RNA sequence: GAGUCUAACAUGUGCGCAAGUCUUGGGGUGACCGAAACCCAGAGGCGCAAUGAAAGUGAAGGCUUCCUUGUGAGGCUGAGGUGAGAUCUUUGCUCUACGCGAGUGAGGCGCAUCAUCGACCGACCUAUUCUACUCUUAGGAAGGUUUGAGUAAGAGCGUACAUGUUGGGACCCGAAAGAUGGUGAACUAUGCCUGAGUAGGGUGAAGCCAGAGGAAACUCUGGUGGAAGCUCGUAGCGAUUCUGACGUGCAAAUCGAUCGUCGAACUUGGGUAUAGGGGCGAAAGACUAAUCGAACCAUCUAGUAGCUGGUU
Numbered sequence: 001g002a003g004u005c006u007a008a009c010a011u012g013u014g015c016g017c018a019a020g021u022c023u024u025g026g027g028g029u030g031a032c033c034g035a036a037a038c039c040c041a042g043a044g045g046c047g048c049a050a051u052g053a054a055a056g057u058g059a060a061g062g063c064u065u066c067c068u069u070g071u072g073a074g075g076c077u078g079a080g081g082u083g084a085g086a087u088c089u090u091u092g093c094u095c096u097a098c099g100c101g102a103g104u105g106a107g108g109c110g111c112a113u114c115a116u117c118g119a120c121c122g123a124c125c126u127a128u129u130c131u132a133c134u135c136u137u138a139g140g141a142a143g144g145u146u147u148g149a150g151u152a153a154g155a156g157c158g159u160a161c162a163u164g165u166u167g168g169g170a171c172c173c174g175a176a177a178g179a180u181g182g183u184g185a186a187c188u189a190u191g192c193c194u195g196a197g198u199a200g201g202g203u204g205a206a207g208c209c210a211g212a213g214g215a216a217a218c219u220c221u222g223g224u225g226g227a228a229g230c231u232c233g234u235a236g237c238g239a240u241u242c243u244g245a246c247g248u249g250c251a252a253a254u255c256g257a258u259c260g261u262c263g264a265a266c267u268u269g270g271g272u273a274u275a276g277g278g279g280c281g282a283a284a285g286a287c288u289a290a291u292c293g294a295a296c297c298a299u300c301u302a303g304u305a306g307c308u309g310g311u312u
Stems, first nucleotide, its partner, number of pairs: 005168013020046003026040004050057002080117005088108006119151002121148003124144003131138002171310002174307001178300006187276011198264001200232004207224007236261004241257002244255002278288002

Description
This 312-nucleotide part of an RNA from Aurelia sp. Incheon-2006 belongs to the Rfam family "Eukaryotic large subunit ribosomal RNA". The source organism's lineage runs through Eukaryota, Opisthokonta, Eumetazoa, Scyphozoa and Aurelia. The family is grouped with related families in Rfam's "LSU clan".